[Rfam]
The record is a 66-nucleotide sequence from Eragrostis curvula, which matches "Small nucleolar RNA Z105" in Rfam. Rfam 15.1 lists 621 matches to the family in 204 species. The family's RNA type in Rfam is C/D-box small nucleolar RNA. For this family Rfam cites "The high diversity of snoRNAs in plants: identification and comparative study of 120 snoRNA genes from Oryza sativa" (Chen et al., Nucleic Acids Res, 2003). Gene Ontology terms of the family: RNA processing and nucleolus. The organism belongs to Eragrostis, within Eukaryota. It scores 60 bits against the family's covariance model.
RNA sequence: UUGGCAUGGUGAGGAAAGUAUAAUUUCGUCUGAUAAUUGAUGAGAAAUACCUCCUACUCAUUCUGA
Numbered sequence: 001u002u003g004g005c006a007u008g009g010u011g012a013g014g015a016a017a018g019u020a021u022a023a024u025u026u027c028g029u030c031u032g033a034u035a036a037u038u039g040a041u042g043a044g045a046a047a048u049a050c051c052u053c054c055u056a057c058u059c060a061u062u063c064u065g066a
Base pairs, nucleotide, nucleotide: 006061007060008059009058026045027044030039